RNA: Eukaryotic large subunit ribosomal RNA, nucleotides 2239 to 2772
Organism: Onychostoma macrolepis
RNA sequence: AAGUCGGCAAGUCAGAUCCGUAACUUCGGGAUAAGGAUUGGCUCUAAGGGCUGGGUCGGUCGGGCUGAGGUGCGAAGCGGGGCUGGGCCCGAGCCGCGGCUGGGGGAGCGGCCGCCCCGCGGCGCCCCCUCCCGUUCCCGUCUCCGGCGUGCGGCGCCAGGCCCCCUCCGGCCCCUCUCCCGGCGUUUUCCCCCCCCCUCCCGUCCGUGUCGGUGGCCCCCCUCUCGGGGGGGGAGGCCGGCGCGGCUCCGGGGGGUGCGGGGGGUGGCGUCGGGCUGGGGUGUGUCGGGGGGGUGUCCGCGGCGCCCGCGUCGGGGCGGGGCCGGCGGGGGGGGUGCGCCGCGGUGCGCGGCGGCGACUCUGGACGUGCGCCGGGCCCUUCUCGCGGAUCUCCCCAGCUACGGCCCGCGUCGGGACCUCCGUCUCGGUGCUCUCCCCCCUCCUCCGGGAGGGGGGGUGCCCGGGGCGGGCGGCCUCCCCGGCGCGGCGCCUCGGCCGGCGCCUAGCAGCCGGCUUAGAACUGGUGCGGACCAG
Numbered sequence: 001a002a003g004u005c006g007g008c009a010a011g012u013c014a015g016a017u018c019c020g021u022a023a024c025u026u027c028g029g030g031a032u033a034a035g036g037a038u039u040g041g042c043u044c045u046a047a048g049g050g051c052u053g054g055g056u057c058g059g060u061c062g063g064g065c066u067g068a069g070g071u072g073c074g075a076a077g078c079g080g081g082g083c084u085g086g087g088c089c090c091g092a093g094c095c096g097c098g099g100c101u102g103g104g105g106g107a108g109c110g111g112c113c114g115c116c117c118c119g120c121g122g123c124g125c126c127c128c129c130u131c132c133c134g135u136u137c138c139c140g141u142c143u144c145c146g147g148c149g150u151g152c153g154g155c156g157c158c159a160g161g162c163c164c165c166c167u168c169c170g171g172c173c174c175c176u177c178u179c180c181c182g183g184c185g186u187u188u189u190c191c192c193c194c195c196c197c198c199u200c201c202c203g204u205c206c207g208u209g210u211c212g213g214u215g216g217c218c219c220c221c222c223u224c225u226c227g228g229g230g231g232g233g234g235a236g237g238c239c240g241g242c243g244c245g246g247c248u249c250c251g252g253g254g255g256g257u258g259c260g261g262g263g264g265g266u267g268g269c270g271u272c273g274g275g276c277u278g279g280g281g282u283g284u285g286u287c288g289g290g291g292g293g294g295u296g297u298c299c300g301c302g303g304c305g306c307c308c309g310c311g312u313c314g315g316g317g318c319g320g321g322g323c324c325g326g327c328g329g330g331g332g333g334g335g336u337g338c339g340c341c342g343c344g345g346u347g348c349g350c351g352g353c354g355g356c357g358a359c360u361c362u363g364g365a366c367g368u369g370c371g372c373c374g375g376g377c378c379c380u381u382c383u384c385g386c387g388g389a390u391c392u393c394c395c396c397a398g399c400u401a402c403g404g405c406c407c408g409c410g411u412c413g414g415g416a417c418c419u420c421c422g423u424c425u426c427g428g429u430g431c432u433c434u435c436c437c438c439c440c441u442c443c444u445c446c447g448g449g450a451g452g453g454g455g456g457g458u459g460c461c462c463g464g465g466g467c468g469g470g471c472g473g474c475c476u477c478c479c480c481g482g483c484g485c486g487g488c489g490c491c492u493c494g495g496c497c498g499g500c501g502c503c504u505a506g507c508a509g510c511c512g513g514c515u516u517a518g519a520a521c522u523g524g525u526g527c528g529g530a531c532c533a534g
Stems, first nucleotide, its partner, number of pairs: 015039005024029001040522002043519006049511005055500009064148003068143004077135004086131002088124001089122003093118001096115007523527001